[Rfam]
RNA sequence: AGUCAGCGCGGUCCUCCUCCCAUUUCCGUGCUGGCUGUUCCCCUCUGGAGGUUUAUGACCUUCACAAUUAGGCCGGGCUCUUCAGCCCGGCUCUUUUU
Numbered sequence: 001a002g003u004c005a006g007c008g009c010g011g012u013c014c015u016c017c018u019c020c021c022a023u024u025u026c027c028g029u030g031c032u033g034g035c036u037g038u039u040c041c042c043c044u045c046u047g048g049a050g051g052u053u054u055a056u057g058a059c060c061u062u063c064a065c066a067a068u069u070a071g072g073c074c075g076g077g078c079u080c081u082u083c084a085g086c087c088c089g090g091c092u093c094u095u096u097u098u
Stems, first nucleotide, its partner, number of pairs: 001036005007030005046064007071092009
Dot-bracket structure: (((((.(((((..............))))).))))).........(((((((.....)))))))......(((((((((....)))))))))......
Shown here is a 98-nucleotide RNA from Phyllobacterium endophyticum, a member of the family "Alphaproteobacterial ar15". Clan: suhB sRNA clan. Gene Ontology term of the family: protein binding. Pairs were carried over by alignment from the consensus structure. Taxonomically the source falls in Phyllobacterium (Bacteria, Pseudomonadati, Pseudomonadota, Hyphomicrobiales). Rfam 15.1 lists 316 matches to the family in 177 species. The literature on the family includes a 2012 paper in RNA Biol by del Val et al., "A survey of sRNA families in alpha-proteobacteria". The family's RNA type in Rfam is small RNA.